Shown here is an 89-nucleotide sequence from Geothermobacter hydrogeniphilus, a member of the family "L20-Deltaproteobacteria ribosomal protein leader". The source organism's lineage runs through Bacteria, Pseudomonadati, Desulfuromonadia, Desulfuromonadales and Geothermobacter. For this family Rfam cites "Discovery of 20 novel ribosomal leader candidates in bacteria and archaea" (Eckert and Weinberg, BMC Microbiol, 2020).
RNA sequence: GGUCGUGAACUGAGGGGACAACUGUCUCCCCCUUCAGAUCCGGCCCGGCACCGCGGAAUCAAUCCGCGAAAUCUUACCCACAGAAGGAG
Numbered sequence: 001g002g003u004c005g006u007g008a009a010c011u012g013a014g015g016g017g018a019c020a021a022c023u024g025u026c027u028c029c030c031c032c033u034u035c036a037g038a039u040c041c042g043g044c045c046c047g048g049c050a051c052c053g054c055g056g057a058a059u060c061a062a063u064c065c066g067c068g069a070a071a072u073c074u075u076a077c078c079c080a081c082a083g084a085a086g087g088a089g
Stems, first nucleotide, its partner, number of pairs: 003043003007040002010037008